mir-9198 microRNA precursor family: a 79-nucleotide sequence from Myotis lucifugus. The match comes from Rfam's covariance-model search (98 bits). Rfam links the family to the GO terms miRNA-mediated post-transcriptional gene silencing and RISC complex. The family has 6 seed sequences and 64 matches in Rfam 15.1.
Nucleotides: 079
Base pairs, nucleotide, nucleotide: 004074005073006072007071008070009069010068011067012066013065014064015063016062017061018060019059020058022056023055024054025053026052027051028050
Number, partner (000 for none) and nucleotide at each position: 001000g002000c003000u004074g005073c006072c007071g008070c009069u010068c011067g012066c013065a014064c015063c016062c017061a018060c019059u020058g021000c022056u023055g024054g025053u026052g027051c028050c029000c030000g031000g032000c033000g034000c035000u036000g037000g038000u039000c040000c041000c042000g043000a044000u045000c046000a047000g048000u049000u050028g051027g052026c053025a054024c055023u056022a057000u058020c059019a060018g061017u062016g063015g064014g065013u066012g067011c068010g069009a070008g071007c072006g073005g074004u075000g076000g077000u078000u079000g